A member of the RNA family "Plastid-clpP 5UTR RNA" from Musa balbisiana, 62 nucleotides long. For this family Rfam cites "Retrograde signaling in plants: A critical review focusing on the GUN pathway and beyond" (Richter et al., Plant Commun, 2023). About the family: Plastid clpP is a non-coding RNA (ncRNA) recognised in plastids. It was found in the prime untranslated region (5UTR) of a protease complex subunit (clpP) in plastids, suggesting a posible cis-regulatory function.

[Rfam]
RNA sequence: AAUUCUGUUGUAGAACAAAGAGAACAAUAUUCUAUACCCGGUAAGUACCAAUACGCAUGGGA
Numbered sequence: 001a002a003u004u005c006u007g008u009u010g011u012a013g014a015a016c017a018a019a020g021a022g023a024a025c026a027a028u029a030u031u032c033u034a035u036a037c038c039c040g041g042u043a044a045g046u047a048c049c050a051a052u053a054c055g056c057a058u059g060g061g062a
Stems, first nucleotide, its partner, number of pairs: 003020002006017004037061003045054003

It is annotated as a cis-regulatory element. A search with the family's covariance model found it, with a score of 56 bits.